[Rfam]
RNA sequence: UCGCAGGAGCCCCCGGGCUAAUCUGAUAAAUAAUUCAUGAGGAGUUAAGCCCCAAAGCUCCUGCUAGAUUGUGUUGUCAUUCGUGUUGCAGUUUUGUCUCGUUUUUAUUCCGGCUUAACUGUGUCAAAGCAAUGUCUAGAUUU
Numbered sequence: 001u002c003g004c005a006g007g008a009g010c011c012c013c014c015g016g017g018c019u020a021a022u023c024u025g026a027u028a029a030a031u032a033a034u035u036c037a038u039g040a041g042g043a044g045u046u047a048a049g050c051c052c053c054a055a056a057g058c059u060c061c062u063g064c065u066a067g068a069u070u071g072u073g074u075u076g077u078c079a080u081u082c083g084u085g086u087u088g089c090a091g092u093u094u095u096g097u098c099u100c101g102u103u104u105u106u107a108u109u110c111c112g113g114c115u116u117a118a119c120u121g122u123g124u125c126a127a128a129g130c131a132a133u134g135u136c137u138a139g140a141u142u143u
Stems, first nucleotide, its partner, number of pairs: 003064008015052005020046002022043003076136001078134004084126002087123006096114003
RNA: small nucleolar RNA snoR134